[Rfam]
RNA sequence: GUGCUUGCAGGUGCAGCACCAUCAAGAUUCACAUCGAGUUCAUCCUAAACGACAGGUGUGGCUUACUAUAUGUGAUGAGAAUCUUGAUGAUGCUGCAUCAGCAAACGC
Numbered sequence: 001g002u003g004c005u006u007g008c009a010g011g012u013g014c015a016g017c018a019c020c021a022u023c024a025a026g027a028u029u030c031a032c033a034u035c036g037a038g039u040u041c042a043u044c045c046u047a048a049a050c051g052a053c054a055g056g057u058g059u060g061g062c063u064u065a066c067u068a069u070a071u072g073u074g075a076u077g078a079g080a081a082u083c084u085u086g087a088u089g090a091u092g093c094u095g096c097a098u099c100a101g102c103a104a105a106c107g108c
Base pairs, nucleotide, nucleotide: 010099011098012097013096014095015094016093017092018091020089021088022087023086024085025084026083027082028081029080030079032077033076

Description: Rfam assigns this 108-nucleotide RNA sequence from Oryza meyeriana to the family "mir-172 microRNA precursor family". Taxonomically the source falls in Oryza meyeriana (Eukaryota, Streptophytina, Mesangiospermae, Oryzoideae). Rfam links the family to the GO terms RISC complex and miRNA-mediated post-transcriptional gene silencing. Rfam describes the family as follows. mir-172 has been experimentally verified in Arabidopsis thaliana.